A member of the RNA family "Iron response element I" from Chinchilla lanigera, 36 nucleotides long. Taxonomically the source falls in Chinchilla (Eukaryota, Vertebrata, Euteleostomi, Chinchillidae). A reference for the family is Huang et al. (1999), "An atypical iron-responsive element (IRE) within crayfish ferritin mRNA and an iron regulatory protein 1 (IRP1)-like protein from crayfish hepatopancreas", Insect Biochem Mol Biol. Gene Ontology term of the family: response to iron ion.

[Rfam]
RNA sequence: UAGCUUCCUGCUUCAGCAGUGCUUGGACAGAAGCCA
Numbered sequence: 001u002a003g004c005u006u007c008c009u010g011c012u013u014c015a016g017c018a019g020u021g022c023u024u025g026g027a028c029a030g031a032a033g034c035c036a
Stems, first nucleotide, its partner, number of pairs: 001036001003034005010028001012027005017021001